[Rfam]
RNA sequence: GGGGCUGAUUUUGGUUUCGACUGCGUGCAUUAAGCUAGGGGAAGCGUGCCGGUGCAGGCUAGAGACCACCGAUUUUAAGCGUCGUAGCAAAUAUAUAAGCGCAGAGAACACUCAGCGCGACUACGCCCUCGCUGCCUAAUUUGCAGCGACCUGCGUGUCUGUCAGCCUAGAUUCGUCUCUGGUUUAGUGUCUGGCAUCGAUUAAGAGACUUGCUGGUUUGUUGUGUCAACGGGGCAAACUGGGACUUUCACCGAUGACUGGGCUCAUCAUCCGGGUGUGUUCGUCCAAGCCGGAGAGCCGAGUAGAGAUCCACGCGCGAACUGCGCACGGAGAAGCCCUAGCGAGGUGACGUAGGACCCGGGUUCAAUUCCCGGCAGCUCCACCA
Numbered sequence: 001g002g003g004g005c006u007g008a009u010u011u012u013g014g015u016u017u018c019g020a021c022u023g024c025g026u027g028c029a030u031u032a033a034g035c036u037a038g039g040g041g042a043a044g045c046g047u048g049c050c051g052g053u054g055c056a057g058g059c060u061a062g063a064g065a066c067c068a069c070c071g072a073u074u075u076u077a078a079g080c081g082u083c084g085u086a087g088c089a090a091a092u093a094u095a096u097a098a099g100c101g102c103a104g105a106g107a108a109c110a111c112u113c114a115g116c117g118c119g120a121c122u123a124c125g126c127c128c129u130c131g132c133u134g135c136c137u138a139a140u141u142u143g144c145a146g147c148g149a150c151c152u153g154c155g156u157g158u159c160u161g162u163c164a165g166c167c168u169a170g171a172u173u174c175g176u177c178u179c180u181g182g183u184u185u186a187g188u189g190u191c192u193g194g195c196a197u198c199g200a201u202u203a204a205g206a207g208a209c210u211u212g213c214u215g216g217u218u219u220g221u222u223g224u225g226u227c228a229a230c231g232g233g234g235c236a237a238a239c240u241g242g243g244a245c246u247u248u249c250a251c252c253g254a255u256g257a258c259u260g261g262g263c264u265c266a267u268c269a270u271c272c273g274g275g276u277g278u279g280u281u282c283g284u285c286c287a288a289g290c291c292g293g294a295g296a297g298c299c300g301a302g303u304a305g306a307g308a309u310c311c312a313c314g315c316g317c318g319a320a321c322u323g324c325g326c327a328c329g330g331a332g333a334a335g336c337c338c339u340a341g342c343g344a345g346g347u348g349a350c351g352u353a354g355g356a357c358c359c360g361g362g363u364u365c366a367a368u369u370c371c372c373g374g375c376a377g378c379u380c381c382a383c384c385a
Stems, first nucleotide, its partner, number of pairs: 001381007021354006030345001034342007045329005050071005058088004129149007160196006167187004175209006213242009225258004230253001261299005274290001276288001279321004286314001358374005
The record is a 385-nucleotide RNA from Corynebacterium diphtheriae, which matches "transfer-messenger RNA" in Rfam.
Gene Ontology term of the family: RNA catabolic process.
Its Rfam clan is "tRNA clan".
Rfam classes the family as a non-coding RNA gene.